A member of the RNA family "Actino-pnp RNA" from Pengzhenrongella frigida, 61 nucleotides long. Rfam classes the family as a cis-regulatory element.

RNA sequence: GGAGGUCCUCGGUAGUGGCUCGCGAAGGCACGGCUUUCGCGGACCUCGAUCGAAGAUCGCC
Numbered sequence: 001g002g003a004g005g006u007c008c009u010c011g012g013u014a015g016u017g018g019c020u021c022g023c024g025a026a027g028g029c030a031c032g033g034c035u036u037u038c039g040c041g042g043a044c045c046u047c048g049a050u051c052g053a054a055g056a057u058c059g060c061c
Stems, first nucleotide, its partner, number of pairs: 001061002004058004009053005017045002020042010
Pairs were carried over by alignment from the consensus structure, which is taken from published work. A search with the family's covariance model found it, with a score of 60 bits.